Record summary
Rfam assigns this 81-nucleotide sequence from Betacoronavirus cororeum to the family "Coronavirus frameshifting stimulation element". A reference for the family is Zhang et al. (2020), "Cryo-electron Microscopy and Exploratory Antisense Targeting of the 28-kDa Frameshift Stimulation Element from the SARS-CoV-2 RNA Genome", bioRxiv. Rfam describes the family as follows. This family represents a conserved stem-loop found in Coronaviruses which can promote ribosomal frameshifting. Rfam's curators put it in the seed alignment.

[Rfam]
RNA sequence: GAGUCCGGGGUGCUAGUGGAGUAGCCCGCCUAGUACCCCAAGGCAUAGGUGUUCAGCCUGAUGUCGUUUUAAGGGCUUUUG
Numbered sequence: 001g002a003g004u005c006c007g008g009g010g011u012g013c014u015a016g017u018g019g020a021g022u023a024g025c026c027c028g029c030c031u032a033g034u035a036c037c038c039c040a041a042g043g044c045a046u047a048g049g050u051g052u053u054c055a056g057c058c059u060g061a062u063g064u065c066g067u068u069u070u071a072a073g074g075g076c077u078u079u080u081g
Stems, first nucleotide, its partner, number of pairs: 008038009023077005040067001042065004046060002049058001